[Rfam]
Nucleotides: 170
Base pairs, nucleotide, nucleotide: 001016003014004013006011028170030168031167032166036162042155043154044153045152046150047149048148049147050146063145064144065143066142067140068139074136075135076134078132080131082129084127086112087111088110091106092105093104094103
Number, partner (000 for none) and nucleotide at each position: 001016u002000a003014c004013a005000c006011c007000g008000c009000g010000a011006g012000u013004u014003g015000c016001g017000a018000c019000c020000u021000g022000a023000a024000g025000g026000a027000a028170a029000c030168c031167a032166g033000a034000g035000g036162c037000a038000a039000a040000a041000u042155c043154c044153c045152g046150g047149c048148c049147u050146g051000a052000g053000g054000u055000a056000c057000c058000a059000c060000u061000a062000a063145u064144c065143c066142a067140a068139u069000u070000a071000g072000a073000g074136g075135c076134g077000g078132u079000u080131g081000u082129a083000g084127c085000c086112g087111a088110u089000g090000a091106g092105u093104c094103a095000c096000c097000c098000a099000u100000u101000c102000g103094u104093g105092a106091c107000g108000a109000a110088a111087u112086c113000c114000a115000a116000a117000g118000c119000u120000g121000c122000c123000a124000a125000u126000g127084g128000a129082u130000u131080c132078a133000g134076c135075g136074u137000a138000a139068a140067u141000u142066u143065g144064g145063g146050c147049a148048g149047g150046u151000g152045c153044g154043g155042g156000c157000g158000g159000a160000a161000u162036g163000a164000u165000g166032c167031u168030g169000u170028u